[Rfam]
RNA sequence: UAACAAGCAUUAGAAGAGGUGAUGGGUGGACGAUGAUUAACUAAUCUUAUUUUUAAAAUUUGAAAUCACAUAUUUCAAAUCAUACAAAAUAGGAUUAGUCUACCCAUUUUCGUUAAAAUAUGAAAGAGCAGUUUGCGUAUAGCUUAUUUGAUCAUGCUUUGGUACGGCUAAUCCUUCCAACUAAAUUGGGAGGAUUUUUUG
Numbered sequence: 001u002a003a004c005a006a007g008c009a010u011u012a013g014a015a016g017a018g019g020u021g022a023u024g025g026g027u028g029g030a031c032g033a034u035g036a037u038u039a040a041c042u043a044a045u046c047u048u049a050u051u052u053u054u055a056a057a058a059u060u061u062g063a064a065a066u067c068a069c070a071u072a073u074u075u076c077a078a079a080u081c082a083u084a085c086a087a088a089a090u091a092g093g094a095u096u097a098g099u100c101u102a103c104c105c106a107u108u109u110u111c112g113u114u115a116a117a118a119u120a121u122g123a124a125a126g127a128g129c130a131g132u133u134u135g136c137g138u139a140u141a142g143c144u145u146a147u148u149u150g151a152u153c154a155u156g157c158u159u160u161g162g163u164a165c166g167g168c169u170a171a172u173c174c175u176u177c178c179a180a181c182u183a184a185a186u187u188g189g190g191a192g193g194a195u196u197u198u199u200u201g
Base pairs, nucleotide, nucleotide: 016111017110018109023106024105025104026103029100030099031098042097043096044095045094046093047092048091049090050089051088052087053086058080059079060078061077062076063075064074065073066072121150122149123148128143129142131140132139170196171195172194173193174192175191176190177189178188179187180186
Dot-bracket structure: ...............(((....((((..(((..........((((((((((((....(((((((((.....))))))))).....)))))))))))))))..))))..))).........(((....((.((......)).))....)))...................(((((((((((.....))))))))))).....
Bacillus sRNA ncr1575: a 201-nucleotide sequence from Terrilactibacillus tamarindi. A search with the family's covariance model found it, with a score of 155 bits.